[Rfam]
RNA sequence: GCCGGUCCUCGGUAGUGGCUUCCGGUAACCAGACCGGGCGCUUCGAUCGAAGACCGGC
Numbered sequence: 001g002c003c004g005g006u007c008c009u010c011g012g013u014a015g016u017g018g019c020u021u022c023c024g025g026u027a028a029c030c031a032g033a034c035c036g037g038g039c040g041c042u043u044c045g046a047u048c049g050a051a052g053a054c055c056g057g058c
Stems, first nucleotide, its partner, number of pairs: 001058007009050005017042003021038006